[Rfam]
RNA sequence: GCAACUUAGAAAAAAGUUUCUCGUAUAAUAUCAGGGAUUAAGGCCUGAGAGUUUCUACCGAGCUACCGUAAAUAGCUUGACUACGAGGUAAGUGUGUAUAUAG
Numbered sequence: 001g002c003a004a005c006u007u008a009g010a011a012a013a014a015a016g017u018u019u020c021u022c023g024u025a026u027a028a029u030a031u032c033a034g035g036g037a038u039u040a041a042g043g044c045c046u047g048a049g050a051g052u053u054u055c056u057a058c059c060g061a062g063c064u065a066c067c068g069u070a071a072a073u074a075g076c077u078u079g080a081c082u083a084c085g086a087g088g089u090a091a092g093u094g095u096g097u098a099u100a101u102a103g
Stems, first nucleotide, its partner, number of pairs: 019088007029050001031048005059079007
Overview: The family of this 103-nucleotide RNA sequence from Bacillus sp. B1-b2 is "Purine riboswitch aptamer". The organism belongs to Bacillus, within Bacteria. Gene Ontology term of the family: purine nucleobase biosynthetic process. Pairs were carried over by alignment from the consensus structure, which is taken from published work. It scores 81 bits against the family's covariance model.